[Rfam]
A member of the RNA family "PyrR binding site" from Ornithinibacillus caprae, 145 nucleotides long. NCBI's taxonomy places the organism under Bacteria, Bacillati, Bacilli, Bacillaceae, Ornithinibacillus. This family represents the PyrR binding site and terminator structure. This RNA structure is found upstream of a variety of genes involved in pyrimidine biosynthesis and transport. The alignment also includes a portion of the antiterminator structure. It is annotated as a cis-regulatory element. The base pairs follow the family's consensus structure, which is taken from published work. The match comes from Rfam's covariance-model search (65 bits).
RNA sequence: GUUACCUUUAAAUCAGUCCCGUGAGACUGGCAAGGUGAAGCAGACAUAGGUCUGUUAUAUAGUGAAAAACACUAGGUACAUCCAUACCUGAUGUUUUUAUGCUGCGCAAAUGCACCUUGCUGAUUAUCGGCAAGGUGUUUUUUCA
Numbered sequence: 001g002u003u004a005c006c007u008u009u010a011a012a013u014c015a016g017u018c019c020c021g022u023g024a025g026a027c028u029g030g031c032a033a034g035g036u037g038a039a040g041c042a043g044a045c046a047u048a049g050g051u052c053u054g055u056u057a058u059a060u061a062g063u064g065a066a067a068a069a070c071a072c073u074a075g076g077u078a079c080a081u082c083c084a085u086a087c088c089u090g091a092u093g094u095u096u097u098u099a100u101g102c103u104g105c106g107c108a109a110a111u112g113c114a115c116c117u118u119g120c121u122g123a124u125u126a127u128c129g130g131c132a133a134g135g136u137g138u139u140u141u142u143u144c145a
Base pairs, nucleotide, nucleotide: 003037004036005035006034007033008032013030014029015028016027017026018025065098066097067096068095069094070093071092073090074089075088076087077086078085110140112138113137114136115135116134117133118132119131120130121129122128123127